The family of this 85-nucleotide RNA from Gasterosteus aculeatus is "mir-218 microRNA precursor family".

RNA sequence: GGGUGUUCCUUUGUGCUUGAUCUAACCAUGUGUCUGAACGGUUCCUAUAGUAAAACAUGGUUCUGUCAAGCACCAUGGAACGGCC
Numbered sequence: 001g002g003g004u005g006u007u008c009c010u011u012u013g014u015g016c017u018u019g020a021u022c023u024a025a026c027c028a029u030g031u032g033u034c035u036g037a038a039c040g041g042u043u044c045c046u047a048u049a050g051u052a053a054a055a056c057a058u059g060g061u062u063c064u065g066u067c068a069a070g071c072a073c074c075a076u077g078g079a080a081c082g083g084c085c
Stems, first nucleotide, its partner, number of pairs: 001085002004082006013073007024062008
The base pairs follow the family's consensus structure, which was predicted with RNAalifold.
Its family is annotated with RISC complex and miRNA-mediated post-transcriptional gene silencing in the Gene Ontology.